U4 spliceosomal RNA: a 133-nucleotide RNA sequence from Hepatocystis sp. ex Piliocolobus tephrosceles. A reference for the family is Zhan et al. (2018), "Structures of the human pre-catalytic spliceosome and its precursor spliceosome", Cell Res. It scores 99 bits against the family's covariance model.
RNA sequence: AUCUUUGCGGGAGGGGCAGUAUCGCUGUAAAUGACGACUAACGGAUACGCGAUAAUUGCUAGUUGAAAACUACUCCAAUUCCCGUCUCGAAGCUGCAAAGCUGAGGGCAAUUUUUGUAGCCUUUUUUAUAAAG
Dot-bracket structure: ....................(((((.(((.....((.....))..))))))))..............................(((.(..((((....))))..))))............((((.....))))